The family of this 151-nucleotide RNA sequence from Clostridiales bacterium PH28_bin88 is "Molybdenum/Tungsten riboswitch aptamer (Moco RNA motif)". The organism belongs to Eubacteriales, within Bacteria.
[Rfam]
RNA sequence: CUGUUUAAUAGUCUCCGAGCUAUUCCACCUAAGGGAACAGUCCUAUGGUGGCUAGCCUGGGCUGAAGCCCACGGGGUACACCAAGUGCUUACCAGCACGGCGGAAACGGGUGUGCCUCCACGUUUUGGGAAGGAGAUGUGCCUUGCCGUGA
Numbered sequence: 001c002u003g004u005u006u007a008a009u010a011g012u013c014u015c016c017g018a019g020c021u022a023u024u025c026c027a028c029c030u031a032a033g034g035g036a037a038c039a040g041u042c043c044u045a046u047g048g049u050g051g052c053u054a055g056c057c058u059g060g061g062c063u064g065a066a067g068c069c070c071a072c073g074g075g076g077u078a079c080a081c082c083a084a085g086u087g088c089u090u091a092c093c094a095g096c097a098c099g100g101c102g103g104a105a106a107c108g109g110g111u112g113u114g115c116c117u118c119c120a121c122g123u124u125u126u127g128g129g130a131a132g133g134a135g136a137u138g139u140g141c142c143u144u145g146c147c148g149u150g151a
Stems, first nucleotide, its partner, number of pairs: 011137006019056004024051001026050004033044004058071005074117009118128002